This 133-nucleotide RNA sequence from Serratia fonticola belongs to the Rfam family "RtT RNA". Rfam classes the family as a cis-regulatory element. The organism belongs to Serratia, within Bacteria. The family has 57 seed sequences and 651 matches in Rfam 15.1. The base pairs follow the family's consensus structure, which is taken from published work. A search with the family's covariance model found it, with a score of 45 bits. From the family's description: This family represents a bacterial cis-regulatory element known as RtT RNA. The exact function of RtT is unknown although it is thought that it may be involved in changing the cellular response in relation to amino acid starvation. The literature on the family includes a 1991 paper in Nucleic Acids Res by Bosl and Kersten, "A novel RNA product of the tyrT operon of Escherichia coli".
RNA sequence: AUUUACCCCGUACAGAGAGGGGUGAGAAGCCUCGAUAGGGUUCGACAAAAUGGCUCGCAGCGCAGAGACAUUUUGGACGGCCGACCGGCCGCCCGUAGGGUGAGCUUGCGAAUCAAACCCUCUCUCACCGCCA
Numbered sequence: 001a002u003u004u005a006c007c008c009c010g011u012a013c014a015g016a017g018a019g020g021g022g023u024g025a026g027a028a029g030c031c032u033c034g035a036u037a038g039g040g041u042u043c044g045a046c047a048a049a050a051u052g053g054c055u056c057g058c059a060g061c062g063c064a065g066a067g068a069c070a071u072u073u074u075g076g077a078c079g080g081c082c083g084a085c086c087g088g089c090c091g092c093c094c095g096u097a098g099g100g101u102g103a104g105c106u107u108g109c110g111a112a113u114c115a116a117a118c119c120c121u122c123u124c125u126c127a128c129c130g131c132c133a
Stems, first nucleotide, its partner, number of pairs: 015124007023116001033102002036099001041097001043095002048072001075090002078087003